[Rfam]
RNA sequence: GCUCUGCACUUUCCAGAUGGCGGUGCAGGCAGAUCAUCUAGAGUGGUCAGCUUGGUUGUCCUGCUUAGGCGAAUACAUUGUGGGGUCUGGCAUAACGCGGAGUAGAUGCGCACGAAACGCGGAGCCAGC
Numbered sequence: 001g002c003u004c005u006g007c008a009c010u011u012u013c014c015a016g017a018u019g020g021c022g023g024u025g026c027a028g029g030c031a032g033a034u035c036a037u038c039u040a041g042a043g044u045g046g047u048c049a050g051c052u053u054g055g056u057u058g059u060c061c062u063g064c065u066u067a068g069g070c071g072a073a074u075a076c077a078u079u080g081u082g083g084g085g086u087c088u089g090g091c092a093u094a095a096c097g098c099g100g101a102g103u104a105g106a107u108g109c110g111c112a113c114g115a116a117a118c119g120c121g122g123a124g125c126c127a128g129c
Base pairs, nucleotide, nucleotide: 001030002029004028005027006026007025008024009023010022013020014019062071063070064069085129087128088127089126090125091124096121097120098119099118105113
Dot-bracket structure: ((.(((((((..((....)).)))))))))...............................(((....))).............(.(((((....((((.....(.......)....))))..))))))
Notes:
Rfam assigns this 129-nucleotide sequence to the family "Bacteriophage Diversity-Generating Retroelement RNA". The family's RNA type in Rfam is small RNA. A reference for the family is Handa et al. (2025), "RNA control of reverse transcription in a diversity-generating retroelement", Nature. Rfam's curators put it in the seed alignment. The family's consensus secondary structure is taken from published work.